Notes: A member of the RNA family "ASpks TB sRNA" from Streptomyces sp. 150FB, 75 nucleotides long. By type it is an antisense RNA. For this family Rfam cites "Identification of small RNAs in Mycobacterium tuberculosis" (Arnvig and Young, Mol Microbiol, 2009). A search with the family's covariance model found it, with a score of 85 bits.

RNA sequence: CUUCAGCGACCCGAGCCACAGCGGCCUGCCGGCCGGGCGGUCCUGGCCAUAGGUCGCCAGCAGCGCCUGCGCCUC
Numbered sequence: 001c002u003u004c005a006g007c008g009a010c011c012c013g014a015g016c017c018a019c020a021g022c023g024g025c026c027u028g029c030c031g032g033c034c035g036g037g038c039g040g041u042c043c044u045g046g047c048c049a050u051a052g053g054u055c056g057c058c059a060g061c062a063g064c065g066c067c068u069g070c071g072c073c074u075c
Stems, first nucleotide, its partner, number of pairs: 015025003032070002038065002043060003047056001049054001